[Rfam]
RNA sequence: ACUCAGGCACGAUCUGCUUUCCUUAAUAUAUUUAGAAUUUUUUAAAGCGGCAGAAGCGACCUGAAGUCUCAAACCUGAGGGA
Numbered sequence: 001a002c003u004c005a006g007g008c009a010c011g012a013u014c015u016g017c018u019u020u021c022c023u024u025a026a027u028a029u030a031u032u033u034a035g036a037a038u039u040u041u042u043u044a045a046a047g048c049g050g051c052a053g054a055a056g057c058g059a060c061c062u063g064a065a066g067u068c069u070c071a072a073a074c075c076u077g078a079g080g081g082a
Stems, first nucleotide, its partner, number of pairs: 001067003004063004013054006031046006

Description
L31-Corynebacteriaceae ribosomal protein leader: an 82-nucleotide RNA from Corynebacterium caspium. NCBI's taxonomy places the organism under Bacteria, Actinomycetota, Actinomycetes, Mycobacteriales, Corynebacterium caspium. Its Rfam clan is "Ribosomal Protein L31 Leader clan". Rfam's curators put it in the seed alignment.